[Rfam]
RNA sequence: GUCAAUUUCUGAAUUAGAGAUCGGGUCCAUUCUAUUACAUUUUUUGAGGUUAAAAAUUAUGUCUCUAAAUGCUGAACAAAAAGCCAAAGUAGUGCUUGAGCAUGGUAGUUCUGCU
Numbered sequence: 001g002u003c004a005a006u007u008u009c010u011g012a013a014u015u016a017g018a019g020a021u022c023g024g025g026u027c028c029a030u031u032c033u034a035u036u037a038c039a040u041u042u043u044u045u046g047a048g049g050u051u052a053a054a055a056a057u058u059a060u061g062u063c064u065c066u067a068a069a070u071g072c073u074g075a076a077c078a079a080a081a082a083g084c085c086a087a088a089g090u091a092g093u094g095c096u097u098g099a100g101c102a103u104g105g106u107a108g109u110u111c112u113g114c115u
Stems, first nucleotide, its partner, number of pairs: 008025005043069004048064002